[Rfam]
RNA: Makes More Granules Regulator RNA (mmgR)
Organism: Bradyrhizobium diazoefficiens
RNA sequence: UACCGCUGCCCUCCUUGGGCGUUUCCUCCCUAGACUUGGGCCGCUUGCGUCAUUCGCGAGCGGCCCUUUUUUCUUUGGG
Numbered sequence: 001u002a003c004c005g006c007u008g009c010c011c012u013c014c015u016u017g018g019g020c021g022u023u024u025c026c027u028c029c030c031u032a033g034a035c036u037u038g039g040g041c042c043g044c045u046u047g048c049g050u051c052a053u054u055c056g057c058g059a060g061c062g063g064c065c066c067u068u069u070u071u072u073c074u075u076u077g078g079g
Stems, first nucleotide, its partner, number of pairs: 008020004040064009